[Rfam]
Notes
Nuclear RNase P: a 281-nucleotide RNA from Dracunculus medinensis. It is annotated as a ribozyme. On this family, see Marquez et al., RNA 2005: "Structural implications of novel diversity in eucaryal RNase P RNA". Its family is annotated with ribonuclease P complex, ribonuclease P activity and tRNA processing in the Gene Ontology. Its Rfam clan is "RNaseP clan".
RNA sequence: AUAUUUUCUCAUGAGCCUGCUAUGGAUAUAUAGCGCUUAUGUCGCUUAUCUGAGAACUCCUGGGAAGGUCUGAGAAAAGGUACUAUGUUAUGUGAAUCUUCUAGCAGGAGAGUGGCGUAAUACGCUGCAAGGUUCGUACUAGAAAAACGGCACACUUCAUAUAUGAUGAACGCAUGAGGGUUUCACUGGUGCCAGACGUGCAUAUAUGAAGUGUUGGAAGGAGACCCUCGUACCGGCUAUGCUUAGUGCAAUAACCAGGCAAACACAAUUCAUAUAUAUAU
Numbered sequence: 001a002u003a004u005u006u007u008c009u010c011a012u013g014a015g016c017c018u019g020c021u022a023u024g025g026a027u028a029u030a031u032a033g034c035g036c037u038u039a040u041g042u043c044g045c046u047u048a049u050c051u052g053a054g055a056a057c058u059c060c061u062g063g064g065a066a067g068g069u070c071u072g073a074g075a076a077a078a079g080g081u082a083c084u085a086u087g088u089u090a091u092g093u094g095a096a097u098c099u100u101c102u103a104g105c106a107g108g109a110g111a112g113u114g115g116c117g118u119a120a121u122a123c124g125c126u127g128c129a130a131g132g133u134u135c136g137u138a139c140u141a142g143a144a145a146a147a148c149g150g151c152a153c154a155c156u157u158c159a160u161a162u163a164u165g166a167u168g169a170a171c172g173c174a175u176g177a178g179g180g181u182u183u184c185a186c187u188g189g190u191g192c193c194a195g196a197c198g199u200g201c202a203u204a205u206a207u208g209a210a211g212u213g214u215u216g217g218a219a220g221g222a223g224a225c226c227c228u229c230g231u232a233c234c235g236g237c238u239a240u241g242c243u244u245a246g247u248g249c250a251a252u253a254a255c256c257a258g259g260c261a262a263a264c265a266c267a268a269u270u271c272a273u274a275u276a277u278a279u280a281u
Stems, first nucleotide, its partner, number of pairs: 001281004011275003016259004021254001024060003032046004036041001071272004080233004097111005112128006131227002134224002151213003

About this RNA:
NCBI's taxonomy places the organism under Eukaryota, Protostomia, Ecdysozoa, Dracunculidae, Dracunculus.